[Rfam]
RNA sequence: CCUCUCAAGGAGCGCUGCAGCGCCACCGGCCCCCAAGGGUUUGCGUGUGCGUCAGGCUUGAGUGGGCAUGAACAGGCCCAAAACGGCGCUCACCAGUC
Numbered sequence: 001c002c003u004c005u006c007a008a009g010g011a012g013c014g015c016u017g018c019a020g021c022g023c024c025a026c027c028g029g030c031c032c033c034c035a036a037g038g039g040u041u042u043g044c045g046u047g048u049g050c051g052u053c054a055g056g057c058u059u060g061a062g063u064g065g066g067c068a069u070g071a072a073c074a075g076g077c078c079c080a081a082a083a084c085g086g087c088g089c090u091c092a093c094c095a096g097u098c
Stems, first nucleotide, its partner, number of pairs: 002064001004062005021051003024047003
Overview:
SAH (S-adenosyl-L-homocysteine) riboswitch aptamer: a 98-nucleotide sequence from Hydrogenophaga sp. RAC07. Pairs were carried over by alignment from the consensus structure, which is taken from published work. The organism belongs to Hydrogenophaga, within Bacteria.